Shown here is a 116-nucleotide RNA sequence from Brachypodium distachyon, a member of the family "MIR5070 microRNA precursor family". Lineage of the source: Eukaryota > Tracheophyta > commelinids > Poaceae > Brachypodium. Its family is annotated with RISC complex and miRNA-mediated post-transcriptional gene silencing in the Gene Ontology.
[Rfam]
RNA sequence: CAGGGUACCCGUUGACCCUCUUUAGUUCAACCAAAUGAACUAAAGUUUUCAAAUGAUACAACUUUUUAAAAAACUAGUUCAUUUGUUUGAACUAAAGAGGGUCGGAGAGUACCCUA
Numbered sequence: 001c002a003g004g005g006u007a008c009c010c011g012u013u014g015a016c017c018c019u020c021u022u023u024a025g026u027u028c029a030a031c032c033a034a035a036u037g038a039a040c041u042a043a044a045g046u047u048u049u050c051a052a053a054u055g056a057u058a059c060a061a062c063u064u065u066u067u068a069a070a071a072a073a074c075u076a077g078u079u080c081a082u083u084u085g086u087u088u089g090a091a092c093u094a095a096a097g098a099g100g101g102u103c104g105g106a107g108a109g110u111a112c113c114c115u116a
Base pairs, nucleotide, nucleotide: 002115003114004113005112006111007110008109010107012105013104014103015102016101017100018099019098020097021096022095023094024093025092026091027090028089029088030087032085033084034083035082036081037080038079039078040077041076042075